[Rfam]
RNA: Small nucleolar RNA SNORA40
Organism: Microtus ochrogaster
RNA sequence: AGUACUGAUGUGUGAUGUUGUUGAACUUAUGGACAAAGCUUAGACAGGUGGGAAAGUAAGCCCUCUUUUUCAACCCAGAACUCUUUUGUCAGUGUGGGUUUUGAUAUAUACAUAGAGGAAUAUG
Numbered sequence: 001a002g003u004a005c006u007g008a009u010g011u012g013u014g015a016u017g018u019u020g021u022u023g024a025a026c027u028u029a030u031g032g033a034c035a036a037a038g039c040u041u042a043g044a045c046a047g048g049u050g051g052g053a054a055a056g057u058a059a060g061c062c063c064u065c066u067u068u069u070u071c072a073a074c075c076c077a078g079a080a081c082u083c084u085u086u087u088g089u090c091a092g093u094g095u096g097g098g099u100u101u102u103g104a105u106a107u108a109u110a111c112a113u114a115g116a117g118g119a120a121u122a123u124g
Stems, first nucleotide, its partner, number of pairs: 003050004009046001011044001014039001016038001018036004026031001060121001063118002066115002069112001076103008085094001